[Rfam]
RNA: mir-965 microRNA precursor family
Organism: Daphnia pulex
RNA sequence: CAAAGCAAGGGAAAGGUUGUAGCUCUUAUGUCUCAUUUUGAUUAGCAUAAGCGUAUGGCUUUUCCCCUGCAGUG
Numbered sequence: 001c002a003a004a005g006c007a008a009g010g011g012a013a014a015g016g017u018u019g020u021a022g023c024u025c026u027u028a029u030g031u032c033u034c035a036u037u038u039u040g041a042u043u044a045g046c047a048u049a050a051g052c053g054u055a056u057g058g059c060u061u062u063u064c065c066c067c068u069g070c071a072g073u074g
Base pairs, nucleotide, nucleotide: 005070006069007068009066010065011064013062014061017058018057019056020055021054025051026050027049028048029047030046